The record is a 151-nucleotide RNA from Diachasma alloeum, which matches "U12 minor spliceosomal RNA" in Rfam. The organism belongs to Diachasma, within Eukaryota. The base pairs follow the family's consensus structure. The family has 62 seed sequences and 2,106 matches in Rfam 15.1. Rfam links the family to the GO terms pre-mRNA branch point binding, U12 snRNP and mRNA branch site recognition.
[Rfam]
RNA sequence: GUGCCUUAAACUAAUGAGUAAGGAAAAUAUAAAGCUUUGGUGACGCUUAGCUAUGCUAAAUAAUUAAGCGACCAUAUUUUUGCAGGGGCCCAGGUCGUCCCAGGACUGCUUGAACUACUUUUUCGAGCGGUCAGGUGAAGCGAUCUACUCC
Numbered sequence: 001g002u003g004c005c006u007u008a009a010a011c012u013a014a015u016g017a018g019u020a021a022g023g024a025a026a027a028u029a030u031a032a033a034g035c036u037u038u039g040g041u042g043a044c045g046c047u048u049a050g051c052u053a054u055g056c057u058a059a060a061u062a063a064u065u066a067a068g069c070g071a072c073c074a075u076a077u078u079u080u081u082g083c084a085g086g087g088g089c090c091c092a093g094g095u096c097g098u099c100c101c102a103g104g105a106c107u108g109c110u111u112g113a114a115c116u117a118c119u120u121u122u123u124c125g126a127g128c129g130g131u132c133a134g135g136u137g138a139a140g141c142g143a144u145c146u147a148c149u150c151c
Stems, first nucleotide, its partner, number of pairs: 004023005033052004039046001054070004085151004092146007101135001104132005110126005